[Rfam]
Background:
Shown here is a 74-nucleotide RNA from Oecophyllibacter saccharovorans, a member of the family "tRNA".
RNA sequence: GGACUCAUAGCUCAGCUGGAUAGAGCGCUGCCCUCCGAAGGCAGAGGCCGCAGGUUCGAAUCCUGCUGGGUCCA
Numbered sequence: 001g002g003a004c005u006c007a008u009a010g011c012u013c014a015g016c017u018g019g020a021u022a023g024a025g026c027g028c029u030g031c032c033c034u035c036c037g038a039a040g041g042c043a044g045a046g047g048c049c050g051c052a053g054g055u056u057c058g059a060a061u062c063c064u065g066c067u068g069g070g071u072c073c074a
Stems, first nucleotide, its partner, number of pairs: 001073007010026004028044005050066005
Dot-bracket structure: (((((((..((((.........)))).(((((.......))))).....(((((.......)))))))))))).
It is annotated as a transfer RNA. Pairs were carried over by alignment from the consensus structure, which is taken from published work.